Annotation
Shown here is a 105-nucleotide RNA sequence from Shouchella clausii, a member of the family "SAM riboswitch aptamer (S box leader)". The sequence is in the family's curated seed alignment. Taxonomically the source falls in Shouchella clausii (Bacteria, Bacillota, Bacillaceae, Shouchella).
[Rfam]
RNA sequence: CUCUUAUAACGAGAAGCGGAGGGACUGGCCCAAUGAAGCUUCAGCAACCAUUCAUUGCGAUGAAAAGGUGCUAAAUCCAGCAAAGGGAACUUUGGCAGAUAAGGG
Numbered sequence: 001c002u003c004u005u006a007u008a009a010c011g012a013g014a015a016g017c018g019g020a021g022g023g024a025c026u027g028g029c030c031c032a033a034u035g036a037a038g039c040u041u042c043a044g045c046a047a048c049c050a051u052u053c054a055u056u057g058c059g060a061u062g063a064a065a066a067g068g069u070g071c072u073a074a075a076u077c078c079a080g081c082a083a084a085g086g087g088a089a090c091u092u093u094g095g096c097a098g099a100u101a102a103g104g105g
Stems, first nucleotide, its partner, number of pairs: 001105007013042005021031003025080004043072004048068002051063002076097001081094004

Its Rfam clan is "SAM clan". The base pairs follow the family's consensus structure, which is taken from published work.